Rfam assigns this 53-nucleotide sequence from Oenothera villaricae to the family "Plastid-atpF group II-D1 intron". The family's consensus secondary structure was predicted with LocARNA. A reference for the family is Richter et al. (2023), "Retrograde signaling in plants: A critical review focusing on the GUN pathway and beyond", Plant Commun. About the family: Plastid atpF is a non-coding RNA (ncRNA) recognised in plastids. It has been reported in the intron group II-D1 region of ATP synthase (atpF) genes. It is one of the family's seed sequences.
[Rfam]
RNA sequence: UUCCAUUUUUUUGAUAUAGAACACUCAUGUCGAUAAAAUGAUUUGAAACCUUU
Numbered sequence: 001u002u003c004c005a006u007u008u009u010u011u012u013g014a015u016a017u018a019g020a021a022c023a024c025u026c027a028u029g030u031c032g033a034u035a036a037a038a039u040g041a042u043u044u045g046a047a048a049c050c051u052u053u
Base pairs, nucleotide, nucleotide: 011033012032013031014030015029016028017027